[Rfam]
The record is an 87-nucleotide sequence from Daphnia pulex, which matches "mir-46/mir-47/mir-281 microRNA precursor family" in Rfam. Rfam links the family to the GO terms RISC complex and miRNA-mediated post-transcriptional gene silencing.
RNA sequence: GAGCUUGAGCCGCAAAGAGAGCUAUCCGUGAACAGUAUGCUGUGUGUGCGAAAAUUCACUGUCAUGGAGCUGCUCUCUUUAUGGACA
Numbered sequence: 001g002a003g004c005u006u007g008a009g010c011c012g013c014a015a016a017g018a019g020a021g022c023u024a025u026c027c028g029u030g031a032a033c034a035g036u037a038u039g040c041u042g043u044g045u046g047u048g049c050g051a052a053a054a055u056u057c058a059c060u061g062u063c064a065u066g067g068a069g070c071u072g073c074u075c076u077c078u079u080u081a082u083g084g085a086c087a
Stems, first nucleotide, its partner, number of pairs: 014080005020074003025068004032062002035059002